This 148-nucleotide sequence from Koleobacter methoxysyntrophicus belongs to the Rfam family "Ribosomal protein L10 leader". The organism belongs to Koleobacter, within Bacteria. On this family, see Zengel and Lindahl, Prog Nucleic Acid Res Mol Biol 1994: "Diverse mechanisms for regulating ribosomal protein synthesis in Escherichia coli".
RNA sequence: UAAAAAAAUAAACCGAUGCUGUAGACAGUAGGUGCUUUAAGGCUUAAAGAAUCUUGAUUCGCCUACCGAGGCAAAGGAGUUAUAGGGGCAGUGGAAUUUAUGCCUUUUCUGUAACUUUGUCUACAGGAAAGGCUUUUAUUUUUAUUUA
Numbered sequence: 001u002a003a004a005a006a007a008a009u010a011a012a013c014c015g016a017u018g019c020u021g022u023a024g025a026c027a028g029u030a031g032g033u034g035c036u037u038u039a040a041g042g043c044u045u046a047a048a049g050a051a052u053c054u055u056g057a058u059u060c061g062c063c064u065a066c067c068g069a070g071g072c073a074a075a076g077g078a079g080u081u082a083u084a085g086g087g088g089c090a091g092u093g094g095a096a097u098u099u100a101u102g103c104c105u106u107u108u109c110u111g112u113a114a115c116u117u118u119g120u121c122u123a124c125a126g127g128a129a130a131g132g133c134u135u136u137u138a139u140u141u142u143u144a145u146u147u148a
Base pairs, nucleotide, nucleotide: 028066029065030064031063032062033061034043035042036041102133103132104131105130106129107128108127109126110125111124112123113122